[Rfam]
RNA: Bacillus-plasmid RNA
Organism: Sphenodon punctatus
RNA sequence: UGUGUCAAUGGUAGAGGAGGAGCUGAGACUAAUUUACAGGUAGAUAAUUGAUACAAACACUACA
Numbered sequence: 001u002g003u004g005u006c007a008a009u010g011g012u013a014g015a016g017g018a019g020g021a022g023c024u025g026a027g028a029c030u031a032a033u034u035u036a037c038a039g040g041u042a043g044a045u046a047a048u049u050g051a052u053a054c055a056a057a058c059a060c061u062a063c064a
Stems, first nucleotide, its partner, number of pairs: 001055009